[Rfam]
RNA sequence: UGUCUCCUCCACCUCCUCCAUUGGUGGAUUCAGCCCAAGGCAGCAAUGCCUUGGGCGUUUUUC
Numbered sequence: 001u002g003u004c005u006c007c008u009c010c011a012c013c014u015c016c017u018c019c020a021u022u023g024g025u026g027g028a029u030u031c032a033g034c035c036c037a038a039g040g041c042a043g044c045a046a047u048g049c050c051u052u053g054g055g056c057g058u059u060u061u062u063c
Stems, first nucleotide, its partner, number of pairs: 008028006033056008

Rfam assigns this 63-nucleotide RNA sequence from Rhizobacter sp. Root404 to the family "Betaproteobacteria toxic small RNA". Rfam describes the family as follows. Overexpression in amino aid rich medium attenuates growth, suggesting role in repressing amino acid intake and metabolism. Taxonomically the source falls in Rhizobacter (Bacteria, Betaproteobacteria, Burkholderiales, Sphaerotilaceae). Pairs were carried over by alignment from the consensus structure, which was predicted with WAR. On this family, see Kimelman et al., Genome Res 2012: "A vast collection of microbial genes that are toxic to bacteria".